Description:
The record is an 88-nucleotide RNA from Chitinibacter fontanus, which matches "Burkholderia RNA 7 (anti-hemB)" in Rfam. The family's consensus secondary structure is taken from published work. About the family: This RNA motif was identified by computational search in b-proteobacteria Burkholderia. Co-purified with Hfq, expression confirmed by Northern blot. On this family, see Weinberg et al., Nucleic Acids Res 2007: "Identification of 22 candidate structured RNAs in bacteria using the CMfinder comparative genomics pipeline". Gene Ontology terms of the family: protein binding and bacterial biofilm matrix. It scores 53 bits against the family's covariance model.
Nucleotides: 088
Stems, first nucleotide, its partner, number of pairs: 004026006027042005054080008
Number, partner (000 for none) and nucleotide at each position: 001000c002000c003000u004026c005025c006024c007023g008022c009021u010000u011000u012000u013000c014000c015000u016000c017000c018000c019000u020000g021009a022008g023007c024006g025005g026004g027042g028041c029040u030039u031038c032000u033000g034000a035000a036000a037000a038031g039030a040029a041028g042027c043000a044000a045000u046000c047000u048000a049000u050000a051000u052000g053000g054080c055079c056078c057077c058076a059075g060074u061073c062000a063000a064000g065000c066000c067000a068000a069000c070000u071000u072000c073061g074060a075059c076058u077057g078056g079055g080054g081000u082000u083000u084000c085000u086000u087000u088000u